Record summary:
The record is a 515-nucleotide part of an RNA from Zancudomyces culisetae, which matches "Eukaryotic large subunit ribosomal RNA" in Rfam. Lineage of the source: Eukaryota > Opisthokonta > Kickxellomycotina > Harpellales > Zancudomyces. The family is grouped with related families in Rfam's "LSU clan".

Nucleotides: 515
Base pairs, nucleotide, nucleotide: 001451002450003449004448005447006446011024013022014021015020027182028181029180030179031178032177033176048127049126050125051124052123053122054121060115061113062112067109068108069107072104074102075101076100079099080098081097082096083095084094086092129157130156131155134154135153136152137151138150139149188212189211190210191209193207194206195205196204197203217228218227219226232410233409234408235407236406238404242400243399244398251397253396256393257392258391277371278370279369281368282367283366284365285364286363287362288361289360290359298355299354300353301352302351304328305327306326310322311321329333334349338347339346411441412440413439414438415437416436417435418434419433452510454507455506456505457504458503459502460501461500466499467498474494475493480489481488482487
Number, partner (000 for none) and nucleotide at each position: 001451c002450c003449u004448g005447c006446c007000g008000a009000a010000g011024u012000u013022u014021c015020c016000c017000u018000c019000a020015g021014g022013a023000u024011a025000g026000c027182a028181g029180a030179g031178a032177c033176u034000g035000g036000a037000a038000u039000u040000u041000u042000a043000a044000g045000c046000a047000g048127u049126u050125u051124u052123a053122c054121g055000a056000g057000g058000u059000a060115a061113a062112g063000c064000g065000a066000a067109u068108g069107a070000u071000u072104a073000g074102a075101g076100g077000c078000c079099u080098u081097g082096g083095g084094g085000a086092u087000g088000u089000a090000a091000c092086a093000u094084c095083c096082u097081u098080a099079a100076c101075c102074u103000a104072u105000u106000c107069u108068c109067a110000a111000a112062c113061u114000u115060u116000a117000a118000a119000u120000g121054c122053g123052u124051a125050a126049g127048a128000a129157g130156c131155c132000a133000a134154c135153u136152u137151u138150u139149u140000u141000c142000u143000u144000a145000a146000u147000u148000g149139a150138a151137a152136a153135a154134g155131g156130g157129c158000g159000u160000u161000u162000a163000a164000u165000a166000c167000g168000a169000a170000u171000g172000c173000a174000u175000c176033a177032g178031u179030c180029u181028c182027u183000a184000g185000u186000g187000g188212g189211c190210c191209a192000u193207u194206u195205u196204u197203g198000g199000u200000a201000a202000g203197c204196a205195g206194a207193a208000c209191u210190g211189g212188c213000g214000a215000u216000g217228c218227g219226g220000g221000a222000u223000g224000a225000a226219c227218c228217g229000a230000a231000c232410g233409u234408a235407g236406a237000g238404u239000u240000a241000a242400g243399g244398u245000g246000c247000c248000c249000a250000a251397a252000u253396g254000c255000a256393c257392g258391c259000u260000c261000a262000u263000a264000u265000a266000g267000a268000c269000a270000c271000c272000a273000u274000a275000a276000a277371a278370g279369g280000u281368g282367u283366u284365a285364g286363u287362u288361c289360a290359u291000c292000u293000a294000g295000a296000c297000a298355g299354c300353a301352g302351g303000g304328c305327g306326g307000u308000g309000g310322c311321c312000a313000u314000g315000g316000a317000a318000g319000u320000c321311g322310g323000a324000a325000u326306c327305c328304g329333c330000u331000a332000a333329g334349g335000a336000g337000u338347g339346u340000g341000u342000a343000a344000c345000a346339a347338c348000u349334c350000a351302c352301c353300u354299g355298c356000c357000g358000a359290a360289u361288g362287a363286a364285c365284u366283a367282g368281c369279c370278c371277u372000g373000a374000a375000a376000a377000u378000g379000g380000a381000u382000g383000g384000c385000g386000c387000u388000u389000a390000a391258g392257c393256g394000u395000g396253c397251u398244a399243c400242c401000g402000a403000u404238a405000c406236u407235c408234u409233a410232c411441c412440g413439c414438c415437a416436a417435a418434g419433u420000u421000a422000u423000u424000a425000a426000g427000a428000u429000u430000a431000a432000c433419a434418c435417u436416u437415u438414g439413g440412u441411g442000a443000g444000u445000a446006g447005g448004c449003a450002g451001g452510c453000g454507u455506g456505g457504g458503g459502g460501u461500u462000u463000u464000g465000a466499g467498u468000a469000g470000a471000g472000a473000a474494g475493c476000u477000g478000u479000g480489g481488g482487a483000g484000u485000g486000a487482u488481c489480u490000c491000c492000a493475g494474u495000g496000g497000a498467a499466c500461a501460a502459c503458c504457u505456c506455u507454a508000g509000u510452g511000c512000a513000g514000a515000u